ZMP/ZTP riboswitch aptamer (pfl RNA motif): a 78-nucleotide sequence from Paenibacillus uliginis. A search with the family's covariance model found it, with a score of 59 bits. The family's consensus secondary structure is taken from published work.

RNA sequence: GUCACUAUGUGUAACUGGCGUAACAUGGAAUACCAUGAGGGAGCACAUAGAUAACAGCCGUACGCCUGGGCAGAGGUA
Numbered sequence: 001g002u003c004a005c006u007a008u009g010u011g012u013a014a015c016u017g018g019c020g021u022a023a024c025a026u027g028g029a030a031u032a033c034c035a036u037g038a039g040g041g042a043g044c045a046c047a048u049a050g051a052u053a054a055c056a057g058c059c060g061u062a063c064g065c066c067u068g069g070g071c072a073g074a075g076g077u078a
Stems, first nucleotide, its partner, number of pairs: 005050008015040002017066005025036004055073001057071003